[Rfam]
RNA sequence: AGCGCGACCGGGUCGACCGCGCGGGUGACCGUCAGAUAAUCGCGGAUCGCGACGGCGUGUCGGCCCUC
Numbered sequence: 001a002g003c004g005c006g007a008c009c010g011g012g013u014c015g016a017c018c019g020c021g022c023g024g025g026u027g028a029c030c031g032u033c034a035g036a037u038a039a040u041c042g043c044g045g046a047u048c049g050c051g052a053c054g055g056c057g058u059g060u061c062g063g064c065c066c067u068c
Stems, first nucleotide, its partner, number of pairs: 005062002008059001011030003016026003035056001037054001040052005
The record is a 68-nucleotide RNA from Streptosporangium subroseum, which matches "ASdes TB sRNA" in Rfam. It scores 71 bits against the family's covariance model. It is annotated as a small RNA.